[Rfam]
RNA sequence: UGGGGAUUAGCCAAGCGGUAAGGCAACGGACUUUGACUCCGUCAUCCAAGGUUCGAAUCCUUGAUCCCCAG
Numbered sequence: 001u002g003g004g005g006a007u008u009a010g011c012c013a014a015g016c017g018g019u020a021a022g023g024c025a026a027c028g029g030a031c032u033u034u035g036a037c038u039c040c041g042u043c044a045u046c047c048a049a050g051g052u053u054c055g056a057a058u059c060c061u062u063g064a065u066c067c068c069c070a071g
Stems, first nucleotide, its partner, number of pairs: 001070007010024003026042005047063005